Shown here is an 87-nucleotide RNA from Poecilia reticulata, a member of the family "let-7 microRNA precursor family". Rfam links the family to the GO terms miRNA-mediated post-transcriptional gene silencing and RISC complex. NCBI's taxonomy places the organism under Eukaryota, Opisthokonta, Bilateria, Gnathostomata, Poecilia. A search with the family's covariance model found it, with a score of 72 bits. A reference for the family is Rougvie (2001), "Control of developmental timing in animals", Nat Rev Genet. This family represents the microRNAs (miRNA) let-7 and mir-98. let-7 was identified from a study of developmental timing in C. elegans, and was later shown to be part of a much larger class of non-coding RNAs termed miRNAs.
RNA sequence: UCAGGGUGAGGUAGUAGGUUGUAUAGUUUGGUAGGUGGGACUGCACCCUGCUGAGGUGAUAACUAUACAGUCUAUUGCCUUCCCUGA
Numbered sequence: 001u002c003a004g005g006g007u008g009a010g011g012u013a014g015u016a017g018g019u020u021g022u023a024u025a026g027u028u029u030g031g032u033a034g035g036u037g038g039g040a041c042u043g044c045a046c047c048c049u050g051c052u053g054a055g056g057u058g059a060u061a062a063c064u065a066u067a068c069a070g071u072c073u074a075u076u077g078c079c080u081u082c083c084c085u086g087a
Base pairs, nucleotide, nucleotide: 001087002086003085004084005083006082008081009080010079011078012077013076014075015074016073017072018071019070020069021068022067023066024065025064026063027062034047035046051058